[Rfam]
RNA sequence: GUAAAUACCGGUGAUGAGGCUCACCGUAAUCGCAUCUUAAUGCUGACGGCUUCUGCUUUAAG
Numbered sequence: 001g002u003a004a005a006u007a008c009c010g011g012u013g014a015u016g017a018g019g020c021u022c023a024c025c026g027u028a029a030u031c032g033c034a035u036c037u038u039a040a041u042g043c044u045g046a047c048g049g050c051u052u053c054u055g056c057u058u059u060a061a062g
Stems, first nucleotide, its partner, number of pairs: 010025004016053006032043004

The record is a 62-nucleotide RNA sequence from Caproicibacter fermentans, which matches "Fluoride riboswitch aptamer (crcB RNA motif)" in Rfam. Pairs were carried over by alignment from the consensus structure, which is taken from published work. The match comes from Rfam's covariance-model search (42 bits).